[Rfam]
RNA: Group II catalytic intron D1-D4-3
RNA sequence: UCCAUCGUGAGGUGGAAUCUGAAGAAAGCCGGAUUUUGGGAGUUGAAAGGUCUCCCAAUGGGCAAAACUCUGGCCUGACGAACAGAAAUCGCAUAUAAGGCCGUCAGCGAGGGUAAGUUUGCAUAACAAAACAAAGCCCAGCAGCUACACGGAAUCGCUUUCGGCAAAUGCGGCAGGUAAAGAGGGAAAGAAUGUGCG
Numbered sequence: 001u002c003c004a005u006c007g008u009g010a011g012g013u014g015g016a017a018u019c020u021g022a023a024g025a026a027a028g029c030c031g032g033a034u035u036u037u038g039g040g041a042g043u044u045g046a047a048a049g050g051u052c053u054c055c056c057a058a059u060g061g062g063c064a065a066a067a068c069u070c071u072g073g074c075c076u077g078a079c080g081a082a083c084a085g086a087a088a089u090c091g092c093a094u095a096u097a098a099g100g101c102c103g104u105c106a107g108c109g110a111g112g113g114u115a116a117g118u119u120u121g122c123a124u125a126a127c128a129a130a131a132c133a134a135a136g137c138c139c140a141g142c143a144g145c146u147a148c149a150c151g152g153a154a155u156c157g158c159u160u161u162c163g164g165c166a167a168a169u170g171c172g173g174c175a176g177g178u179a180a181a182g183a184g185g186g187a188a189a190g191a192a193u194g195u196g197c198g
Base pairs, nucleotide, nucleotide: 001016002015003014004013005012006011051198053196055194063190068184069183070182071181073178074177075176076175077174089173090172091171092170093169094168100165101164102163106159107158108157109156110155111139112138113137114136117132118131119130120129